[Rfam]
RNA sequence: AUGGCUUCAAUGAUGUCAGAUGCAGAAACUACUCUGUAGUGGCGUCUGUCUGAUCCUCAGCCAA
Numbered sequence: 001a002u003g004g005c006u007u008c009a010a011u012g013a014u015g016u017c018a019g020a021u022g023c024a025g026a027a028a029c030u031a032c033u034c035u036g037u038a039g040u041g042g043c044g045u046c047u048g049u050c051u052g053a054u055c056c057u058c059a060g061c062c063a064a
Base pairs, nucleotide, nucleotide: 002063003062004061005060015050017048018047019046020045021044022043023042029039030038031037